This 84-nucleotide RNA sequence from Corynebacterium humireducens belongs to the Rfam family "L31-Corynebacteriaceae ribosomal protein leader". Its Rfam clan is "Ribosomal Protein L31 Leader clan". It is one of the family's seed sequences.
RNA sequence: ACUCAGGCACGAUCCGGGCCUCUGGAACACCUCAUGUAGCAGGUGUGUACGCGCGGAACCGACCUGAUGUUCAAUCCUGAGGGA
Numbered sequence: 001a002c003u004c005a006g007g008c009a010c011g012a013u014c015c016g017g018g019c020c021u022c023u024g025g026a027a028c029a030c031c032u033c034a035u036g037u038a039g040c041a042g043g044u045g046u047g048u049a050c051g052c053g054c055g056g057a058a059c060c061g062a063c064c065u066g067a068u069g070u071u072c073a074a075u076c077c078u079g080a081g082g083g084a
Stems, first nucleotide, its partner, number of pairs: 001070002004066004013057004018052002027046006